[Rfam]
Rfam assigns this 131-nucleotide RNA sequence from Vombatus ursinus to the family "Vault RNA". Pairs were carried over by alignment from the consensus structure, which is taken from published work. It scores 57 bits against the family's covariance model. This family of RNAs are found as part of the enigmatic vault ribonucleoprotein complex. The complex consists of a major vault protein (MVP), two minor vault proteins (VPARP and TEP1), and several small untranslated RNA molecules. It has been suggested that the vault complex is involved in drug resistance. Taxonomically the source falls in Vombatus (Eukaryota, Euteleostomi, Amniota, Theria). The literature on the family includes a 2009 paper in Mol Biol Evol by Stadler et al., "Evolution of Vault RNAs".

RNA sequence: GGGCCGGCUUCAGCUCAGCGGCUCCUUCGCGCGUGAUACGCGGUCUCUGAACGCGGUCUGGUCUCAUGUUACCGCCUCGGGCUGCCCAACGUCUGCACCUUCGAGUCCCGCGGGCGCUGCCUGGUCCUUUU
Numbered sequence: 001g002g003g004c005c006g007g008c009u010u011c012a013g014c015u016c017a018g019c020g021g022c023u024c025c026u027u028c029g030c031g032c033g034u035g036a037u038a039c040g041c042g043g044u045c046u047c048u049g050a051a052c053g054c055g056g057u058c059u060g061g062u063c064u065c066a067u068g069u070u071a072c073c074g075c076c077u078c079g080g081g082c083u084g085c086c087c088a089a090c091g092u093c094u095g096c097a098c099c100u101u102c103g104a105g106u107c108c109c110g111c112g113g114g115c116g117c118u119g120c121c122u123g124g125u126c127c128u129u130u131u
Base pairs, nucleotide, nucleotide: 002126003125004124005123006122007121013115014114015113016112018111019110020109021108026105027104028103029102